Rfam assigns this 75-nucleotide RNA sequence from Clarias magur to the family "mir-216 microRNA precursor family". NCBI's taxonomy places the organism under Eukaryota, Deuterostomia, Neopterygii, Siluroidei, Clarias.
RNA sequence: GGAUUGCAUAAUCUCUGCAGGCAACUGUGAUUGUGAUGUUGUAUCUCACAUUCACCUGGAGAGAUUGUGUAGUCA
Numbered sequence: 001g002g003a004u005u006g007c008a009u010a011a012u013c014u015c016u017g018c019a020g021g022c023a024a025c026u027g028u029g030a031u032u033g034u035g036a037u038g039u040u041g042u043a044u045c046u047c048a049c050a051u052u053c054a055c056c057u058g059g060a061g062a063g064a065u066u067g068u069g070u071a072g073u074c075a
Base pairs, nucleotide, nucleotide: 003073004072005071006070007069009067010066011065012064013063014062015061016060020057021056024052026050027049028048029047030046
Gene Ontology terms of the family: miRNA-mediated post-transcriptional gene silencing and RISC complex. It scores 57 bits against the family's covariance model.